[Rfam]
RNA: COG3943 RNA
RNA sequence: CACGCUCCACACAAUAGUAAUAUUGAGCAUGAGGCCAUCCAAUAGAGGAUGUAACACCAGUAGCAUUGGUUAAUAGGGAUAUUAAUUGUUUGCUGCAUUAGGUGU
Numbered sequence: 001c002a003c004g005c006u007c008c009a010c011a012c013a014a015u016a017g018u019a020a021u022a023u024u025g026a027g028c029a030u031g032a033g034g035c036c037a038u039c040c041a042a043u044a045g046a047g048g049a050u051g052u053a054a055c056a057c058c059a060g061u062a063g064c065a066u067u068g069g070u071u072a073a074u075a076g077g078g079a080u081a082u083u084a085a086u087u088g089u090u091u092g093c094u095g096c097a098u099u100a101g102g103u104g105u
Stems, first nucleotide, its partner, number of pairs: 012025005036051005054105005060096006069086006